[Rfam]
The record is a 74-nucleotide sequence from Lancefieldella parvula, which matches "tRNA" in Rfam.
Lineage of the source: Bacteria > Actinomycetota > Coriobacteriia > Coriobacteriales > Lancefieldella parvula.
Rfam links the family to the GO term triplet codon-amino acid adaptor activity.
It scores 62 bits against the family's covariance model.
RNA sequence: CGGGUGGUGGCGCAGCUUGGUAGCGCACUUGACUGGGGGUCAAGGGGUCGCUGGUUCAAAUCCAGUCCACCCGA
Numbered sequence: 001c002g003g004g005u006g007g008u009g010g011c012g013c014a015g016c017u018u019g020g021u022a023g024c025g026c027a028c029u030u031g032a033c034u035g036g037g038g039g040u041c042a043a044g045g046g047g048u049c050g051c052u053g054g055u056u057c058a059a060a061u062c063c064a065g066u067c068c069a070c071c072c073g074a
Stems, first nucleotide, its partner, number of pairs: 001073007010026004028044005050066005